[Rfam]
RNA sequence: GUGCUAUAAUGGUUUUUGGAUAAGUUUCGGCUGAAUUAAUUGAUGCCACUUUUUAAUGCUGAGCAC
Numbered sequence: 001g002u003g004c005u006a007u008a009a010u011g012g013u014u015u016u017u018g019g020a021u022a023a024g025u026u027u028c029g030g031c032u033g034a035a036u037u038a039a040u041u042g043a044u045g046c047c048a049c050u051u052u053u054u055a056a057u058g059c060u061g062a063g064c065a066c
Stems, first nucleotide, its partner, number of pairs: 001066004